[Rfam]
RNA: MIR159 microRNA precursor family
RNA sequence: UAUAUAUGUAGAGAGCUUUCUUCAGUCCACAUAAAGGGUGUAGUAUGGUUCAAUUAGCUGCUGACUCAUUCACACAAAUGCUAAGGUUAAUAGAAGGCCUUAGUAGCUGAGUGAAUGAAGUGGGAGACAAAUUGAAUCUUAAGCUUCCUCUGCUUGGACUGAAGGGAGCUCCCUCUUGAAUUAUC
Numbered sequence: 001u002a003u004a005u006a007u008g009u010a011g012a013g014a015g016c017u018u019u020c021u022u023c024a025g026u027c028c029a030c031a032u033a034a035a036g037g038g039u040g041u042a043g044u045a046u047g048g049u050u051c052a053a054u055u056a057g058c059u060g061c062u063g064a065c066u067c068a069u070u071c072a073c074a075c076a077a078a079u080g081c082u083a084a085g086g087u088u089a090a091u092a093g094a095a096g097g098c099c100u101u102a103g104u105a106g107c108u109g110a111g112u113g114a115a116u117g118a119a120g121u122g123g124g125a126g127a128c129a130a131a132u133u134g135a136a137u138c139u140u141a142a143g144c145u146u147c148c149u150c151u152g153c154u155u156g157g158a159c160u161g162a163a164g165g166g167a168g169c170u171c172c173c174u175c176u177u178g179a180a181u182u183a184u185c
Base pairs, nucleotide, nucleotide: 013171014170015169016168017167018166019165020164023161024160025159026158027157028156029155036148058126059125061123062122063121067117068116069115070114075109